[Rfam]
RNA sequence: AUACCUUUCUCGACUUUUUGGCUAAGAUCAAGUGUAGUAUUUGUUCUUAUCAGUUUAAUAUCUUAUACGUGACACAAUGAAUCACAUGAUAUUAAAUGUAUUUCUAUAGGGGGGAUUCAACACAUGGUAGCUUGUUAUCAGACCCUUCGCACUUUGCUUUUGUAAUGCACUACUGCACAAGCCUGACGCACCCCAU
Numbered sequence: 001a002u003a004c005c006u007u008u009c010u011c012g013a014c015u016u017u018u019u020g021g022c023u024a025a026g027a028u029c030a031a032g033u034g035u036a037g038u039a040u041u042u043g044u045u046c047u048u049a050u051c052a053g054u055u056u057a058a059u060a061u062c063u064u065a066u067a068c069g070u071g072a073c074a075c076a077a078u079g080a081a082u083c084a085c086a087u088g089a090u091a092u093u094a095a096a097u098g099u100a101u102u103u104c105u106a107u108a109g110g111g112g113g114g115a116u117u118c119a120a121c122a123c124a125u126g127g128u129a130g131c132u133u134g135u136u137a138u139c140a141g142a143c144c145c146u147u148c149g150c151a152c153u154u155u156g157c158u159u160u161u162g163u164a165a166u167g168c169a170c171u172a173c174u175g176c177a178c179a180a181g182c183c184u185g186a187c188g189c190a191c192c193c194c195a196u
Stems, first nucleotide, its partner, number of pairs: 008027003012023001014021002048067003052063002069085004075079001111148004117142002127138004152188001154186003158180002161177003

Shown here is a 196-nucleotide sequence from Taxus chinensis, a member of the family "U2 spliceosomal RNA". NCBI's taxonomy places the organism under Eukaryota, Pinidae, Conifers II, Taxaceae, Taxus. Its Rfam clan is "U2 clan". Rfam's curators write: U2 is a small nuclear RNA (snRNA) component of the spliceosome (involved in pre-mRNA splicing). Complementary binding between U2 snRNA (in an area lying towards the 5' end but 3' to hairpin I) and the branchpoint sequence (BPS) of the intron results the bulging out of an unpaired adenosine, on the BPS, which initiates a nucleophilic attack at the intronic 5' splice site, thus starting the first of two transesterification reactions that mediate splicing.